[Rfam]
RNA sequence: GGAGGCGUAAGGGCUCCUGGUGGACCCCGCGGUCUUCAAAACCGACGUGGCCGGGCAUCUCGGUCAGGCGGGUUCGAUUCCCGUCCGCCUCC
Numbered sequence: 001g002g003a004g005g006c007g008u009a010a011g012g013g014c015u016c017c018u019g020g021u022g023g024a025c026c027c028c029g030c031g032g033u034c035u036u037c038a039a040a041a042c043c044g045a046c047g048u049g050g051c052c053g054g055g056c057a058u059c060u061c062g063g064u065c066a067g068g069c070g071g072g073u074u075c076g077a078u079u080c081c082c083g084u085c086c087g088c089c090u091c092c
Stems, first nucleotide, its partner, number of pairs: 001092007009084001012027002015024003030044004048066005069083004
RNA: Selenocysteine transfer RNA
Organism: Saccharopolyspora erythraea